The record is a 306-nucleotide sequence from Cuscuta australis, which matches "Plant signal recognition particle RNA" in Rfam. Gene Ontology terms of the family: SRP-dependent cotranslational protein targeting to membrane, signal sequence recognition and signal recognition particle, endoplasmic reticulum targeting.
RNA sequence: GCCGAGCUCAGUAACGCGAGCUUGUGACCCGAGUGGGGGCUAUGAGGUGUUGGAACAUUGGGAUUGCCUUCGGGGGCGGGUCUUUUGGGAGCCAUCAUUGGGCCGCCCUGUCCAAGCUGGGGAGAUGGGCCAAGGUUCUUGUUCGAAGGAAUAUGGGAGUCUUGUCCACUAAAAUGGGGGGUAAUGCGUGAGGCUGGUUUCACAGAGCAGCGAAAACCCCCUCCUCUCAGCAAUGGAAGGAUAACGGUCCAUCGUCUUCUAGGCCCAUCUAACCUCAAGGGCUACCCAAUUGGGACCUUCACCUUU
Numbered sequence: 001g002c003c004g005a006g007c008u009c010a011g012u013a014a015c016g017c018g019a020g021c022u023u024g025u026g027a028c029c030c031g032a033g034u035g036g037g038g039g040c041u042a043u044g045a046g047g048u049g050u051u052g053g054a055a056c057a058u059u060g061g062g063a064u065u066g067c068c069u070u071c072g073g074g075g076g077c078g079g080g081u082c083u084u085u086u087g088g089g090a091g092c093c094a095u096c097a098u099u100g101g102g103c104c105g106c107c108c109u110g111u112c113c114a115a116g117c118u119g120g121g122g123a124g125a126u127g128g129g130c131c132a133a134g135g136u137u138c139u140u141g142u143u144c145g146a147a148g149g150a151a152u153a154u155g156g157g158a159g160u161c162u163u164g165u166c167c168a169c170u171a172a173a174a175u176g177g178g179g180g181g182u183a184a185u186g187c188g189u190g191a192g193g194c195u196g197g198u199u200u201c202a203c204a205g206a207g208c209a210g211c212g213a214a215a216a217c218c219c220c221c222u223c224c225u226c227u228c229a230g231c232a233a234u235g236g237a238a239g240g241a242u243a244a245c246g247g248u249c250c251a252u253c254g255u256c257u258u259c260u261a262g263g264c265c266c267a268u269c270u271a272a273c274c275u276c277a278a279g280g281g282c283u284a285c286c287c288a289a290u291u292g293g294g295a296c297c298u299u300c301a302c303c304u305u306u
Stems, first nucleotide, its partner, number of pairs: 001040003004023006028037003044305006052297002056293001058289005066282001068281003073276004078266006087258004092254001099251007107240002111237004116231004121227004128167002131164011142151003176221005185214001187212003194205003
The family has 63 seed sequences and 4,988 matches in Rfam 15.1. The match comes from Rfam's covariance-model search (206 bits).